[Rfam]
RNA sequence: GAGGGUUUUGGGCCCCUCGAACUCGCUAUACAGGUAGAGAGUUCAAACCACCUUAAGGUGCGUCAGUCAAAAGCUGAUGUGCUGAGCGUUAAGGAAAAGGCAAAUCAUAAGAAUUUGUCAGGU
Numbered sequence: 001g002a003g004g005g006u007u008u009u010g011g012g013c014c015c016c017u018c019g020a021a022c023u024c025g026c027u028a029u030a031c032a033g034g035u036a037g038a039g040a041g042u043u044c045a046a047a048c049c050a051c052c053u054u055a056a057g058g059u060g061c062g063u064c065a066g067u068c069a070a071a072a073g074c075u076g077a078u079g080u081g082c083u084g085a086g087c088g089u090u091a092a093g094g095a096a097a098a099g100g101c102a103a104a105u106c107a108u109a110a111g112a113a114u115u116u117g118u119c120a121g122g123u
Base pairs, nucleotide, nucleotide: 001018002017003016004015005014019044020043021042022041023040024039026037027036028035029034049122051094052093053092054091055090056089057083058082060080061079062078064076065075066074067073099119100118101117102116103115104114
The record is a 123-nucleotide RNA from Heliorestis acidaminivorans, which matches "Group II catalytic intron D1-D4-2" in Rfam. Rfam describes the family as follows. Group II introns are found in rRNA, tRNA and mRNA of organelles in fungi, plants and protists, and also in mRNA in bacteria. It scores 108 bits against the family's covariance model. On this family, see Lehmann and Schmidt, Crit Rev Biochem Mol Biol 2003: "Group II introns: structure and catalytic versatility of large natural ribozymes". Rfam links the family to the GO term Group II intron splicing.